[Rfam]
RNA sequence: ACACGGAAAGGAGGUGGUCCGAGAAAUGAAGUCUUUUCGGAUGAGUGAGGUGGCUGCCCGCUAGGCAGCAACCGGCCGGCCGUCGCUCGACGGUCGCAUCGCCGACGCAGUGCCGGCGAAUCCACAGCAGUCACCCGACCCGCAGGCCCCCGGAGUCAUCCCCCGGGACCGCUCCCGUGAGCGGUAGGCCUGCGGGUCGUCUGCG
Numbered sequence: 001a002c003a004c005g006g007a008a009a010g011g012a013g014g015u016g017g018u019c020c021g022a023g024a025a026a027u028g029a030a031g032u033c034u035u036u037u038c039g040g041a042u043g044a045g046u047g048a049g050g051u052g053g054c055u056g057c058c059c060g061c062u063a064g065g066c067a068g069c070a071a072c073c074g075g076c077c078g079g080c081c082g083u084c085g086c087u088c089g090a091c092g093g094u095c096g097c098a099u100c101g102c103c104g105a106c107g108c109a110g111u112g113c114c115g116g117c118g119a120a121u122c123c124a125c126a127g128c129a130g131u132c133a134c135c136c137g138a139c140c141c142g143c144a145g146g147c148c149c150c151c152g153g154a155g156u157c158a159u160c161c162c163c164c165g166g167g168a169c170c171g172c173u174c175c176c177g178u179g180a181g182c183g184g185u186a187g188g189c190c191u192g193c194g195g196g197u198c199g200u201c202u203g204c205g
Stems, first nucleotide, its partner, number of pairs: 013058006059118004064114003068108002073104003136199013150167002153164001155162001